A member of the RNA family "mir-31 microRNA precursor family" from Spodoptera littoralis, 81 nucleotides long. Its family is annotated with gene silencing by miRNA and RISC complex in the Gene Ontology. A search with the family's covariance model found it, with a score of 59 bits. For this family Rfam cites "The small RNA profile during Drosophila melanogaster development" (Aravin et al., Dev Cell, 2003). Lineage of the source: Eukaryota > Hexapoda > Obtectomera > Noctuidae > Spodoptera. The family is grouped with related families in Rfam's "mir-31 microRNA precursor family".
RNA sequence: GGUGGCUGGGAAGGCAAGAAGUCGGCAUAGCUGUUUGAUGUUAGUAUACGGCUGUGUCACUUCGAGCCAGCUCAAUCCACC
Dot-bracket structure: ....(.((((..(((..((((..((((((((...................)))))))).))))..)))..)))).).....